c-di-GMP-I riboswitch aptamer: an 84-nucleotide sequence from Novimethylophilus kurashikiensis. Rfam links the family to the GO term cyclic-di-GMP binding.
[Rfam]
RNA sequence: UAAGAACAAAGGCAAACUUGCUGAAAGGCAAGGGCGCAAAAUUACCGGCCUAAAGGCAGUGCCAAAGGUAGCGGGGUUGCGGUU
Numbered sequence: 001u002a003a004g005a006a007c008a009a010a011g012g013c014a015a016a017c018u019u020g021c022u023g024a025a026a027g028g029c030a031a032g033g034g035c036g037c038a039a040a041a042u043u044a045c046c047g048g049c050c051u052a053a054a055g056g057c058a059g060u061g062c063c064a065a066a067g068g069u070a071g072c073g074g075g076g077u078u079g080c081g082g083u084u
Stems, first nucleotide, its partner, number of pairs: 012037002017032006040078004045074003048069003055063003
About the family: GEMM was predicted in a large-scale screen for bacterial structured RNA regulatory elements.